Shown here is a 107-nucleotide RNA sequence from Flavobacterium aciduliphilum, a member of the family "SAM riboswitch aptamer (S box leader)". The family has 457 seed sequences and 9,625 matches in Rfam 15.1.

RNA sequence: UUGUUAUCACGAAAGCUGGAGGGAAUAGACCCAUUGAAAGCUUAGCAACCCUAUACUUAUAGAAGGUGCUACAUUCUAUUCUGAUGUGAAUCAGGAAAAGAUAACUA
Numbered sequence: 001u002u003g004u005u006a007u008c009a010c011g012a013a014a015g016c017u018g019g020a021g022g023g024a025a026u027a028g029a030c031c032c033a034u035u036g037a038a039a040g041c042u043u044a045g046c047a048a049c050c051c052u053a054u055a056c057u058u059a060u061a062g063a064a065g066g067u068g069c070u071a072c073a074u075u076c077u078a079u080u081c082u083g084a085u086g087u088g089a090a091u092c093a094g095g096a097a098a099a100g101a102u103a104a105c106u107a
Base pairs, nucleotide, nucleotide: 001107003105004104005103006102007101008100013043014042015041016040017039021032022031023030026078027077028076029075044070045069046068047067049066050065051062052061053060054059074099079096080095081094082093083092084091
The base pairs follow the family's consensus structure, which is taken from published work. A search with the family's covariance model found it, with a score of 78 bits.